[Rfam]
RNA sequence: UGAUGUGGUCGUGACUGGCGCGGAAGGUGGAGCACCACCGGGGAGCGACCACAGCUGAUUCGCCGUGCGCCUGGGCAACUCGA
Numbered sequence: 001u002g003a004u005g006u007g008g009u010c011g012u013g014a015c016u017g018g019c020g021c022g023g024a025a026g027g028u029g030g031a032g033c034a035c036c037a038c039c040g041g042g043g044a045g046c047g048a049c050c051a052c053a054g055c056u057g058a059u060u061c062g063c064c065g066u067g068c069g070c071c072u073g074g075g076c077a078a079c080u081c082g083a
Stems, first nucleotide, its partner, number of pairs: 004053009015042002017071005027038004060078001062076003

This 83-nucleotide RNA from Mycobacterium talmoniae belongs to the Rfam family "ZMP/ZTP riboswitch aptamer (pfl RNA motif)". Taxonomically the source falls in Mycobacterium (Bacteria, Bacillati, Actinomycetota, Mycobacteriales). A search with the family's covariance model found it, with a score of 71 bits.